[Rfam]
RNA: Plastid-psbM 3UTR RNA
Organism: Gossypium raimondii
RNA sequence: AUAUAGAUAGUAUGGUAGAAAGAUUCAUAUUUUUUUUCUACCAUACUAUCGAGUUUUAUAGGAUGGUAGAAAGAUUCAUAU
Numbered sequence: 001a002u003a004u005a006g007a008u009a010g011u012a013u014g015g016u017a018g019a020a021a022g023a024u025u026c027a028u029a030u031u032u033u034u035u036u037u038c039u040a041c042c043a044u045a046c047u048a049u050c051g052a053g054u055u056u057u058a059u060a061g062g063a064u065g066g067u068a069g070a071a072a073g074a075u076u077c078a079u080a081u
Base pairs, nucleotide, nucleotide: 006050007049008048009047010046011045012044013043014042015041016040017039018038019037020036021035022034023033